[Rfam]
RNA sequence: AUGCCCUUUAAUUACGGUCCUGUGAGGCUGAGAAGGAAAAUGCGCAGAAGACAAUUUUGUUAACAUUGUCUGAAUUCUGUCCUUGUAUUUUCAAUUCCUCUUACCUACAGGUGAGAGGGAUUUUUAUU
Numbered sequence: 001a002u003g004c005c006c007u008u009u010a011a012u013u014a015c016g017g018u019c020c021u022g023u024g025a026g027g028c029u030g031a032g033a034a035g036g037a038a039a040a041u042g043c044g045c046a047g048a049a050g051a052c053a054a055u056u057u058u059g060u061u062a063a064c065a066u067u068g069u070c071u072g073a074a075u076u077c078u079g080u081c082c083u084u085g086u087a088u089u090u091u092c093a094a095u096u097c098c099u100c101u102u103a104c105c106u107a108c109a110g111g112u113g114a115g116a117g118g119g120a121u122u123u124u125u126a127u128u
Base pairs, nucleotide, nucleotide: 005036006035007034008033009032015030016029017028018027019026051078053076054075055074056073057072059070061068062067093122094121095120096119097118098117099116100115101114102113103112104111105110

The record is a 128-nucleotide RNA from Bacillus taeanensis, which matches "PyrR binding site" in Rfam. This family represents the PyrR binding site and terminator structure. The base pairs follow the family's consensus structure, which is taken from published work. On this family, see Bonner et al., Nucleic Acids Res 2001: "Molecular recognition of pyr mRNA by the Bacillus subtilis attenuation regulatory protein PyrR". Lineage of the source: Bacteria > Bacilli > Caryophanales > Bacillaceae > Bacillus. The family's RNA type in Rfam is cis-regulatory element.